[Rfam]
RNA sequence: UGAUCCCAGCGUCAAAAGUCUCUCCUCCGCAUCGCGCCAGCGCGAAGGCGGGGGGAAGACUUUAUGACGCGCCCCUUUAUGAGCAUGGAGUGGAGCGAAGCUCCGCGGGAAUGCGAAUAAAGGAAGCACGGCGGGAGCUGCAAAGCAGCAAAGCCGUGCGGGAUCA
Numbered sequence: 001u002g003a004u005c006c007c008a009g010c011g012u013c014a015a016a017a018g019u020c021u022c023u024c025c026u027c028c029g030c031a032u033c034g035c036g037c038c039a040g041c042g043c044g045a046a047g048g049c050g051g052g053g054g055g056a057a058g059a060c061u062u063u064a065u066g067a068c069g070c071g072c073c074c075c076u077u078u079a080u081g082a083g084c085a086u087g088g089a090g091u092g093g094a095g096c097g098a099a100g101c102u103c104c105g106c107g108g109g110a111a112u113g114c115g116a117a118u119a120a121a122g123g124a125a126g127c128a129c130g131g132c133g134g135g136a137g138c139u140g141c142a143a144a145g146c147a148g149c150a151a152a153g154c155c156g157u158g159c160g161g162g163a164u165c166a
Base pairs, nucleotide, nucleotide: 001166002165003164004163005162006161007160010069011068012067013066016062017061018060019059020058021057023055024054025053026052027051028050029049030048032045033044034043035042036041074123075122076121077120078119079118080117083114084113085112086111090106091105092104093103094102095101096100126159127158128157129156130155131154132153137149138148139147140146
RNA: Clostridiales-1 RNA